[Rfam]
RNA sequence: CUCGAAUCCUUGGAACCUAGGUGUGAAUGCUGCUUCAGUGCAACACACCUGUUCAAGGAUUCAAA
Numbered sequence: 001c002u003c004g005a006a007u008c009c010u011u012g013g014a015a016c017c018u019a020g021g022u023g024u025g026a027a028u029g030c031u032g033c034u035u036c037a038g039u040g041c042a043a044c045a046c047a048c049c050u051g052u053u054c055a056a057g058g059a060u061u062c063a064a065a
Stems, first nucleotide, its partner, number of pairs: 004062011018051008028042003

Rfam assigns this 65-nucleotide RNA from Mus musculus to the family "mir-362 microRNA precursor family". Rfam's curators put it in the seed alignment.